[Rfam]
RNA: Metazoan signal recognition particle RNA
Organism: Branchiostoma floridae
RNA sequence: GCUGGGCGUGGUGGCGCGCGCCUGUAAUCCAGCUACCUGGAGGCUGGGGUUGGUGGACCGCUUGAUGCCGGGGGUUCUGCGGCGUGCUGUCCUAUGGCGAUCGGGCGUCCACGCUAAGUUCGGCAUCGAUAUGGUUACCCCGGGGGAGCCCAGGGCAACCAGGUCGUCUAAGGAGGGACGCACCGGCCCAGGUUGGAAACAAAGCAGGCAAAAGUCCCCGUGUCGAUCAGUAGCGGGAUCGCGCCCGUGAAUAGGCACUGCGUCUCAGCCCGGCCAAUAUAGUGGGACCCAAUUCUUCUU
Numbered sequence: 001g002c003u004g005g006g007c008g009u010g011g012u013g014g015c016g017c018g019c020g021c022c023u024g025u026a027a028u029c030c031a032g033c034u035a036c037c038u039g040g041a042g043g044c045u046g047g048g049g050u051u052g053g054u055g056g057a058c059c060g061c062u063u064g065a066u067g068c069c070g071g072g073g074g075u076u077c078u079g080c081g082g083c084g085u086g087c088u089g090u091c092c093u094a095u096g097g098c099g100a101u102c103g104g105g106c107g108u109c110c111a112c113g114c115u116a117a118g119u120u121c122g123g124c125a126u127c128g129a130u131a132u133g134g135u136u137a138c139c140c141c142g143g144g145g146g147a148g149c150c151c152a153g154g155g156c157a158a159c160c161a162g163g164u165c166g167u168c169u170a171a172g173g174a175g176g177g178a179c180g181c182a183c184c185g186g187c188c189c190a191g192g193u194u195g196g197a198a199a200c201a202a203a204g205c206a207g208g209c210a211a212a213a214g215u216c217c218c219c220g221u222g223u224c225g226a227u228c229a230g231u232a233g234c235g236g237g238a239u240c241g242c243g244c245c246c247g248u249g250a251a252u253a254g255g256c257a258c259u260g261c262g263u264c265u266c267a268g269c270c271c272g273g274c275c276a277a278u279a280u281a282g283u284g285g286g287a288c289c290c291a292a293u294u295c296u297u298c299u300u
Stems, first nucleotide, its partner, number of pairs: 001044003004023007028041003046296008058285005067274006077268003081264006088257002091255005102247007109237002112235005118228001120226007127166004132161005138155003142151003167173002175218005186209003193202003